[Rfam]
RNA sequence: UUUCGACAAUAGCAAACUUAUCUAAAGGUAAGGACGCAAAGCCAUGGGUCUAAGGAACAAAUAUGUUGUUCUAUGAUUGCCAGACUGCCGAA
Numbered sequence: 001u002u003u004c005g006a007c008a009a010u011a012g013c014a015a016a017c018u019u020a021u022c023u024a025a026a027g028g029u030a031a032g033g034a035c036g037c038a039a040a041g042c043c044a045u046g047g048g049u050c051u052a053a054g055g056a057a058c059a060a061a062u063a064u065g066u067u068g069u070u071c072u073a074u075g076a077u078u079g080c081c082a083g084a085c086u087g088c089c090g091a092a
Base pairs, nucleotide, nucleotide: 012037013036017032018031019030020029021028022027040086041085043083045082046081047080048077049076050075055071056070057069058068059067060066

The family of this 92-nucleotide sequence from Maledivibacter halophilus is "c-di-GMP-I riboswitch aptamer". Taxonomically the source falls in Maledivibacter (Bacteria, Bacillota, Clostridia, Caminicellaceae).